[Rfam]
RNA: HNH endonuclease-associated RNA and ORF (HEARO) RNA
Organism: Reticulibacter mediterranei
RNA sequence: GUCAUGGACCCCGGCAGGGAUGCCGAGGAUUGCAGGCGCCCAGCAUCGGGAGUGUGCCAGCCCGAACAUGACCAGACCCAGCCACCAGCGCGGGAUGCGUGCAUCCAGGCUGAUGAGGCUACGUUCUCAGGAAGUGUUCACGUUCUUACCUGCGGAUGCGAGGCCGGUCUGCUGCUCUAGAGCUGCUGGAUUAAACAGAGCGUGGGUAUACUCAGCGUUCAGCAGAAAGUACCGCCUAAGAACUUCGUCGAGGCCACCUUUAC
Numbered sequence: 001g002u003c004a005u006g007g008a009c010c011c012c013g014g015c016a017g018g019g020a021u022g023c024c025g026a027g028g029a030u031u032g033c034a035g036g037c038g039c040c041c042a043g044c045a046u047c048g049g050g051a052g053u054g055u056g057c058c059a060g061c062c063c064g065a066a067c068a069u070g071a072c073c074a075g076a077c078c079c080a081g082c083c084a085c086c087a088g089c090g091c092g093g094g095a096u097g098c099g100u101g102c103a104u105c106c107a108g109g110c111u112g113a114u115g116a117g118g119c120u121a122c123g124u125u126c127u128c129a130g131g132a133a134g135u136g137u138u139c140a141c142g143u144u145c146u147u148a149c150c151u152g153c154g155g156a157u158g159c160g161a162g163g164c165c166g167g168u169c170u171g172c173u174g175c176u177c178u179a180g181a182g183c184u185g186c187u188g189g190a191u192u193a194a195a196c197a198g199a200g201c202g203u204g205g206g207u208a209u210a211c212u213c214a215g216c217g218u219u220c221a222g223c224a225g226a227a228a229g230u231a232c233c234g235c236c237u238a239a240g241a242a243c244u245u246c247g248u249c250g251a252g253g254c255c256a257c258c259u260u261u262a263c
Base pairs, nucleotide, nucleotide: 001072002071003070004069005068006067010028011027012025013024015022016021075249076248077247080120081119082118083117123243124242125241126240127239129237130236131235144181145180150174152172153171154170155169156168157167158259160257162255163254164253165252183225184224185223186222187221188220189219190218191217196215198213199212200211202209203208